[Rfam]
RNA sequence: CGACUCAACCUAUCCUCCGGGGGCAAAAUCUUGGAAGGGUUCGGCUGUUCGCCGAUUAAAAGGUUACGCGAGUUGGGUUUAAUACGACGUGAGUCAGUAUGGUC
Numbered sequence: 001c002g003a004c005u006c007a008a009c010c011u012a013u014c015c016u017c018c019g020g021g022g023g024c025a026a027a028a029u030c031u032u033g034g035a036a037g038g039g040u041u042c043g044g045c046u047g048u049u050c051g052c053c054g055a056u057u058a059a060a061a062g063g064u065u066a067c068g069c070g071a072g073u074u075g076g077g078u079u080u081a082a083u084a085c086g087a088c089g090u091g092a093g094u095c096a097g098u099a100u101g102g103u104c
Stems, first nucleotide, its partner, number of pairs: 001076001002074004006068001007065005014039002017034006041055005082100004086095003

Source information
A member of the RNA family "Bacterial large subunit ribosomal RNA", 104 nucleotides of a longer RNA. The base pairs follow the family's consensus structure, which is taken from published work. It scores 1199 bits against the family's covariance model.